[Rfam]
Nucleotides: 114
Base pairs, nucleotide, nucleotide: 003058004057005056006055007054019045020044021043022042023041025038026037028035070102071101072100073099074098075097
Number, partner (000 for none) and nucleotide at each position: 001000a002000u003058c004057c005056u006055c007054u008000g009000a010000u011000u012000c013000c014000c015000u016000u017000u018000c019045c020044c021043a022042u023041u024000g025038g026037a027000c028035c029000u030000g031000a032000a033000c034000a035028g036000a037026u038025c039000u040000u041023g042022g043021u044020g045019g046000u047000c048000g049000u050000a051000a052000a053000a054007g055006g056005a057004g058003g059000a060000a061000a062000u063000a064000g065000u066000a067000a068000a069000a070102c071101u072100g073099g074098c075097c076000a077000c078000a079000c080000a081000g082000u083000g084000c085000u086000u087000g088000u089000a090000g091000u092000c093000u094000g095000u096000g097075g098074g099073c100072u101071a102070g103000u104000u105000u106000c107000a108000a109000a110000c111000a112000a113000a114000g

The record is a 114-nucleotide RNA sequence from Pipistrellus kuhlii, which matches "Small nucleolar RNA SNORA61" in Rfam. Taxonomically the source falls in Pipistrellus (Eukaryota, Chordata, Mammalia, Laurasiatheria). The family's RNA type in Rfam is H/ACA-box small nucleolar RNA. Pairs were carried over by alignment from the consensus structure, which was predicted with PFOLD. Rfam 15.1 lists 881 matches to the family in 421 species. Rfam's curators write: ACA61 is a member of the H/ACA class of snoRNA that guide the sites of modification of uridines to pseudouridines.